[Rfam]
RNA sequence: CUCUGUUUCGAAAUGAUACAGGGCGGAAGGAG
Numbered sequence: 001c002u003c004u005g006u007u008u009c010g011a012a013a014u015g016a017u018a019c020a021g022g023g024c025g026g027a028a029g030g031a032g
Stems, first nucleotide, its partner, number of pairs: 001023005008016003
Dot-bracket structure: (((((..(((...)))..))))).........
L31-Firmicutes ribosomal protein leader: a 32-nucleotide RNA from Parageobacillus caldoxylosilyticus. The source organism's lineage runs through Bacteria, Bacilli, Caryophanales, Anoxybacillaceae and Parageobacillus caldoxylosilyticus. It is annotated as a cis-regulatory leader.